[Rfam]
The record is a 141-nucleotide sequence from Paenibacillus sp. NFR01, which matches "SAM riboswitch aptamer (S box leader)" in Rfam. The family's consensus secondary structure is taken from published work. A search with the family's covariance model found it, with a score of 71 bits.

RNA sequence: AUCUUAUCGAGAGCGGCGGAGGGACAGGCCCUAUGAAGCCCGGCAACCGAUUGGCGAAGAACGUUUUGCAGCGUUUUUGGGCCAGUGUCAUGGUGCUAAAUCCUGCAAUGCCGCAUGGUUGCGGUCUUUGGCAGAUGAGAA
Dot-bracket structure: .(((((((....(.(((...(((.[[[[)))......))))((((.(((((...................................)))..))))))...(]]]](((.(...............).)))..)))))))).